[Rfam]
RNA sequence: GUUACGGCUGUUUCUGAUUCGCUUGGUGCAGGUCGGGAACGGUAUCACCGGCGUGCUCCGUGGUUGCGAUUCAUAUCUCAUGAUUUGUGAGGGAGAAUCAUUUCAGUGAACGCCGGUCCCGCCUUGCAUCAAGUGAAUCGGAAACUGCUGUGAAU
Numbered sequence: 001g002u003u004a005c006g007g008c009u010g011u012u013u014c015u016g017a018u019u020c021g022c023u024u025g026g027u028g029c030a031g032g033u034c035g036g037g038a039a040c041g042g043u044a045u046c047a048c049c050g051g052c053g054u055g056c057u058c059c060g061u062g063g064u065u066g067c068g069a070u071u072c073a074u075a076u077c078u079c080a081u082g083a084u085u086u087g088u089g090a091g092g093g094a095g096a097a098u099c100a101u102u103u104c105a106g107u108g109a110a111c112g113c114c115g116g117u118c119c120c121g122c123c124u125u126g127c128a129u130c131a132a133g134u135g136a137a138u139c140g141g142a143a144a145c146u147g148c149u150g151u152g153a154a155u
Base pairs, nucleotide, nucleotide: 013142014141017138018137019136020135023132024131025130026129027128028127029126030125031124032123034121035120036119037118038117040115041114042113043112
Shown here is a 155-nucleotide sequence from Mikania micrantha, a member of the family "MIR168 microRNA precursor family".
The family has 10 seed sequences and 518 matches in Rfam 15.1.
Lineage of the source: Eukaryota > Euphyllophyta > asterids > Asterales > Mikania.
A reference for the family is Lu et al. (2005), "Novel and mechanical stress-responsive MicroRNAs in Populus trichocarpa that are absent from Arabidopsis", Plant Cell.